[Rfam]
RNA sequence: CCGGGGAGCCGGGCAGCCGCGUGCCUUUGGUGCGAGGAAAGUCCGGGCUCCACGAGACGAGGGUGGCGGGUAACGCCCGCCGUGGGAAACCACAGGGAAAGUGCCACAGAGAGAAGACCGCCGAUGAUCCUUUCAGGAUACAGGCAAGGGUGAAAGGGUGCGGCAAGAGCGCACCGGGGUUCUGGCAACAGCGCCCGUCAUGGCAAACCCCACCCGGAGCAAGACCGCAUAGGGGUCUCGCGCCAUUAGCUGGCAGGAGCGUUUCGCUCCGAGAGACUCGGGUUGGUUGCUGGAGCGCGUGGAGCAAUCCACCGCCUAGAUGAAUGGCUGCCCCCGCAGCGCUGGUCGAGAGAUACCGGUUGCGGGACAGAACCCGGCUUACAGGCUCCCCGGCACG
Numbered sequence: 001c002c003g004g005g006g007a008g009c010c011g012g013g014c015a016g017c018c019g020c021g022u023g024c025c026u027u028u029g030g031u032g033c034g035a036g037g038a039a040a041g042u043c044c045g046g047g048c049u050c051c052a053c054g055a056g057a058c059g060a061g062g063g064u065g066g067c068g069g070g071u072a073a074c075g076c077c078c079g080c081c082g083u084g085g086g087a088a089a090c091c092a093c094a095g096g097g098a099a100a101g102u103g104c105c106a107c108a109g110a111g112a113g114a115a116g117a118c119c120g121c122c123g124a125u126g127a128u129c130c131u132u133u134c135a136g137g138a139u140a141c142a143g144g145c146a147a148g149g150g151u152g153a154a155a156g157g158g159u160g161c162g163g164c165a166a167g168a169g170c171g172c173a174c175c176g177g178g179g180u181u182c183u184g185g186c187a188a189c190a191g192c193g194c195c196c197g198u199c200a201u202g203g204c205a206a207a208c209c210c211c212a213c214c215c216g217g218a219g220c221a222a223g224a225c226c227g228c229a230u231a232g233g234g235g236u237c238u239c240g241c242g243c244c245a246u247u248a249g250c251u252g253g254c255a256g257g258a259g260c261g262u263u264u265c266g267c268u269c270c271g272a273g274a275g276a277c278u279c280g281g282g283u284u285g286g287u288u289g290c291u292g293g294a295g296c297g298c299g300u301g302g303a304g305c306a307a308u309c310c311a312c313c314g315c316c317u318a319g320a321u322g323a324a325u326g327g328c329u330g331c332c333c334c335c336g337c338a339g340c341g342c343u344g345g346u347c348g349a350g351a352g353a354u355a356c357c358g359g360u361u362g363c364g365g366g367a368c369a370g371a372a373c374c375c376g377g378c379u380u381a382c383a384g385g386c387u388c389c390c391c392g393g394c395a396c397g
Base pairs, nucleotide, nucleotide: 001393002392003391004390005389006388007387008386009385010384011382012332013331014330015329016328017327018326020034021033022032023031024030025029039380040379041378043377044376045375046374047373048219049218050217051216056265057264059262061215062214063213064212065211066080067079068078069077070076081095082093083092084091085090096210097209101208102207103204104203105202118149119148120145121144122143125142126141157175158174159173160172161171162170176199177196178195179194180193182191183190184189223288224287225286226285233279234278235277236276237275238274256270257269258268259267260266295315296314297313299312300311301310302309303308